[Rfam]
RNA sequence: AGAUGCGUUAACGCUUCGUUAAGCUUUACGGGCGUUUACUGUGUGUAUCCAGUUAUCUGGAUUCUUACCGAGUGGUUGGAGCCACUUCGUUUGACGCCUCCCUGUUAAACUCUCUGAGAGCCGCUUUUGCGGCUCUUUUUUU
Number, nucleotide and partner (000 for none) at each position: 001a044002g000003a042004u041005g014006c013007g000008u000009u000010a000011a000012c000013g006014c005015u038016u000017c000018g000019u000020u000021a035022a000023g033024c032025u031026u000027u000028a000029c000030g000031g025032g024033c023034g000035u021036u000037u000038a015039c000040u000041g004042u003043g000044u001045g000046u000047a000048u061049c060050c059051a058052g000053u000054u000055a000056u000057c000058u051059g050060g049061a048062u000063u000064c000065u000066u000067a000068c000069c000070g087071a086072g085073u084074g083075g082076u000077u000078g000079g000080a000081g000082c075083c074084a073085c072086u071087u070088c000089g000090u000091u000092u000093g106094a105095c104096g103097c000098c000099u000100c000101c000102c000103u096104g095105u094106u093107a000108a000109a000110c000111u000112c000113u000114c000115u000116g137117a136118g135119a134120g133121c132122c131123g130124c129125u000126u000127u000128u000129g124130c123131g122132g121133c120134u119135c118136u117137u116138u000139u000140u000141u000142u000